[Rfam]
RNA sequence: UGAUCAGUCAGGCUGCUGGCUAUAUUCCAGGACAAGUCUGGUCCUGAUAUAGCCAAGCCCGACUGUAUG
Numbered sequence: 001u002g003a004u005c006a007g008u009c010a011g012g013c014u015g016c017u018g019g020c021u022a023u024a025u026u027c028c029a030g031g032a033c034a035a036g037u038c039u040g041g042u043c044c045u046g047a048u049a050u051a052g053c054c055a056a057g058c059c060c061g062a063c064u065g066u067a068u069g
Stems, first nucleotide, its partner, number of pairs: 007063003011059004017055008027041005
RNA: mir-344 microRNA precursor family
Organism: Mus musculus